FMN riboswitch aptamer (RFN element): a 133-nucleotide RNA sequence from Aliigemmobacter aestuarii. Gene Ontology term of the family: FMN binding. Pairs were carried over by alignment from the consensus structure, which is taken from published work. Taxonomically the source falls in Aliigemmobacter (Bacteria, Pseudomonadati, Pseudomonadota, Alphaproteobacteria).
RNA sequence: CACCGUUCUCGGGGCGGGGUGAAACUCCCCACCGGCGGUUACAGCCCGCGAGCGCUUCUGCCUUUGGCAGAGGGUCAGCAGAUCCGGUGAAACUCCGGGGCCGACGGUAUAGUCCGGAUGGAAGAGAAUGGAC
Dot-bracket structure: ..((((((((......(((.......))).[[((((((.....[[))))..((........................))...(((((.......)))))]])).(((....]]))).......))))))))..